[Rfam]
RNA sequence: CCCGCCGAGAGGCGCUGCAACGGAUCGUGGGAUCCGCCACGCUCGGCCGCUGGGCUAGCUGACUGAAAGGGCGCCUCCCUGAU
Dot-bracket structure: .(.(((((............((((((....))))))......))))).)..................................
Numbered sequence: 001c002c003c004g005c006c007g008a009g010a011g012g013c014g015c016u017g018c019a020a021c022g023g024a025u026c027g028u029g030g031g032a033u034c035c036g037c038c039a040c041g042c043u044c045g046g047c048c049g050c051u052g053g054g055c056u057a058g059c060u061g062a063c064u065g066a067a068a069g070g071g072c073g074c075c076u077c078c079c080u081g082a083u
Stems, first nucleotide, its partner, number of pairs: 002049001004047005021036006